[Rfam]
RNA sequence: UGGCUGUAGCUAUAUCAAUAAUCGUUUGAGGAGUUUACUGGCCGGUGGUUGUUACUGAUUUCUUUUGAAAUCUUCAUCGACUAAUCUGCUUACCGAAUUUCUCACAUCU
Numbered sequence: 001u002g003g004c005u006g007u008a009g010c011u012a013u014a015u016c017a018a019u020a021a022u023c024g025u026u027u028g029a030g031g032a033g034u035u036u037a038c039u040g041g042c043c044g045g046u047g048g049u050u051g052u053u054a055c056u057g058a059u060u061u062c063u064u065u066u067g068a069a070a071u072c073u074u075c076a077u078c079g080a081c082u083a084a085u086c087u088g089c090u091u092a093c094c095g096a097a098u099u100u101c102u103c104a105c106a107u108c109u
Stems, first nucleotide, its partner, number of pairs: 028103008040090003044086003048081004
Rfam assigns this 109-nucleotide RNA from Cephalotus follicularis to the family "Small nucleolar RNA snoR109". The base pairs follow the family's consensus structure, which was predicted with WAR. The match comes from Rfam's covariance-model search (74 bits). On this family, see Marker et al., Curr Biol 2002: "Experimental RNomics: identification of 140 candidates for small non-messenger RNAs in the plant Arabidopsis thaliana". Its family is annotated with RNA processing and nucleolus in the Gene Ontology. Rfam classes the family as an H/ACA-box small nucleolar RNA.